[Rfam]
RNA sequence: AGUUGGCCGGUGCCCUUUUCUGGUUGUGCUACUGUGUGUAUGAGAAAGCAGUGCAAUAUUAAAAGGGCAUCGGACGGUGU
Numbered sequence: 001a002g003u004u005g006g007c008c009g010g011u012g013c014c015c016u017u018u019u020c021u022g023g024u025u026g027u028g029c030u031a032c033u034g035u036g037u038g039u040a041u042g043a044g045a046a047a048g049c050a051g052u053g054c055a056a057u058a059u060u061a062a063a064a065g066g067g068c069a070u071c072g073g074a075c076g077g078u079g080u
Base pairs, nucleotide, nucleotide: 001080005075007073008072009071010070012068013067014066015065016064017063018062019061023057024056025055026054027053028052029051030050
The family of this 80-nucleotide RNA sequence from Chiloscyllium punctatum is "mir-130 microRNA precursor family". Gene Ontology terms of the family: miRNA-mediated post-transcriptional gene silencing and RISC complex. For this family Rfam cites "Embryonic stem cell-specific MicroRNAs" (Houbaviy et al., Dev Cell, 2003).